[Rfam]
RNA sequence: CUCUUAUCAAGAGAGACGGAGGGAAUUGGCCCGAUGAAGUCCGGCAACCACUUUUCAUAAAGUAAAGGUGCCAAGUCCAACAGGUUUUCCUGAAAGAUAAGGA
Numbered sequence: 001c002u003c004u005u006a007u008c009a010a011g012a013g014a015g016a017c018g019g020a021g022g023g024a025a026u027u028g029g030c031c032c033g034a035u036g037a038a039g040u041c042c043g044g045c046a047a048c049c050a051c052u053u054u055u056c057a058u059a060a061a062g063u064a065a066a067g068g069u070g071c072c073a074a075g076u077c078c079a080a081c082a083g084g085u086u087u088u089c090c091u092g093a094a095a096g097a098u099a100a101g102g103a
Base pairs, nucleotide, nucleotide: 002102003101004100005099006098007097008096013042015041016040017039021032022031023030026080027079028078029077043072044071045070046069048068049067052062053061076095081092082091083090084089
Record summary
SAM riboswitch aptamer (S box leader): a 103-nucleotide RNA from Sporolactobacillus putidus. Lineage of the source: Bacteria > Bacillati > Bacilli > Sporolactobacillaceae > Sporolactobacillus. Rfam links the family to the GO term regulation of gene expression. The SAM riboswitch is found upstream of a number of genes which code for proteins involved in methionine or cysteine biosynthesis in Gram-positive bacteria.